[Rfam]
Nucleotides: 093
Stems, first nucleotide, its partner, number of pairs: 006088003011083010022073002024070008034060001
Number, partner (000 for none) and nucleotide at each position: 001000a002000u003000g004000u005000c006088u007087c008086u009000u010000g011083g012082a013081g014080u015079u016078c017077c018076u019075u020074u021000g022073a023072a024070c025069g026068c027067u028066u029065c030064a031063u032000a033000u034060a035000u036000a037000u038000g039000a040000g041000g042000a043000a044000a045000a046000u047000u048000u049000u050000a051000a052000u053000c054000c055000u056000u057000u058000c059000u060034u061000u062000g063031a064030u065029g066028a067027a068026g069025u070024g071000u072023u073022u074020g075019g076018g077017g078016g079015a080014a081013c082012u083011c084000u085000u086008a087007g088006g089000u090000u091000c092000a093000a
mir-395 microRNA precursor family: a 93-nucleotide sequence from Cicer arietinum.
On this family, see Jones-Rhoades and Bartel, Mol Cell 2004: "Computational Identification of Plant MicroRNAs and Their Targets, Including a Stress-Induced miRNA".
The source organism's lineage runs through Eukaryota, Viridiplantae, Tracheophyta, Cicereae and Cicer.
The base pairs follow the family's consensus structure, which was predicted with PFOLD.